Annotation
mir-4872 microRNA precursor family: a 76-nucleotide sequence from Branchiostoma lanceolatum. The source organism's lineage runs through Eukaryota, Metazoa, Deuterostomia, Cephalochordata and Branchiostoma.

[Rfam]
RNA sequence: UCGCAUACUGUGCCGGGGCAAUAAAAACUCUGAGUUCCGUCUGCAUCAGAGUUCUGUUGCCCUGGCUCAAUAUGGG
Numbered sequence: 001u002c003g004c005a006u007a008c009u010g011u012g013c014c015g016g017g018g019c020a021a022u023a024a025a026a027a028c029u030c031u032g033a034g035u036u037c038c039g040u041c042u043g044c045a046u047c048a049g050a051g052u053u054c055u056g057u058u059g060c061c062c063u064g065g066c067u068c069a070a071u072a073u074g075g076g
Stems, first nucleotide, its partner, number of pairs: 001076002004074004009069002012066006019059004024055001026053008034044002
About this RNA
It scores 77 bits against the family's covariance model. Rfam links the family to the GO terms miRNA-mediated post-transcriptional gene silencing and RISC complex.